[Rfam]
Nucleotides: 105
Base pairs, nucleotide, nucleotide: 002048003047004046005045006044007043008042009041010040011039012038013037014036015035016034017033018032019031060100061099062098063097064096065095067093068092070090071089072088073087076086077085078084
Number, partner (000 for none) and nucleotide at each position: 001000u002048u003047u004046u005045c006044a007043u008042u009041g010040g011039u012038u013037u014036u015035u016034a017033u018032c019031a020000g021000g022000g023000u024000c025000c026000u027000g028000u029000u030000c031019u032018g033017a034016u035015a036014a037013a038012a039011g040010u041009u042008a043007g044006u045005g046004a047003a048002g049000a050000g051000a052000c053000c054000u055000u056000c057000a058000c059000u060100a061099a062098c063097g064096u065095a066000a067093c068092g069000a070090c071089u072088c073087g074000c075000c076086g077085u078084g079000g080000u081000a082000g083000a084078c085077a086076c087073c088072g089071a090070g091000a092068c093067g094000g095065u096064a097063c098062g099061u100060u101000u102000u103000u104000u105000u